Source information: A member of the RNA family "F6 TB sRNA" from Rhodococcus sp. EPR-157, 57 nucleotides long.
RNA sequence: GUAGUGGCUCCACACUGCUGCCCGACCCCCGACCCGGCAGCGGUGUGGGGCCUCUUU
Numbered sequence: 001g002u003a004g005u006g007g008c009u010c011c012a013c014a015c016u017g018c019u020g021c022c023c024g025a026c027c028c029c030c031g032a033c034c035c036g037g038c039a040g041c042g043g044u045g046u047g048g049g050g051c052c053u054c055u056u057u
Stems, first nucleotide, its partner, number of pairs: 003055002007051016
For this family Rfam cites "Identification of small RNAs in Mycobacterium tuberculosis" (Arnvig and Young, Mol Microbiol, 2009). The base pairs follow the family's consensus structure, which is taken from published work. Lineage of the source: Bacteria > Actinomycetota > Mycobacteriales > Nocardiaceae > Rhodococcus. It is annotated as a small RNA.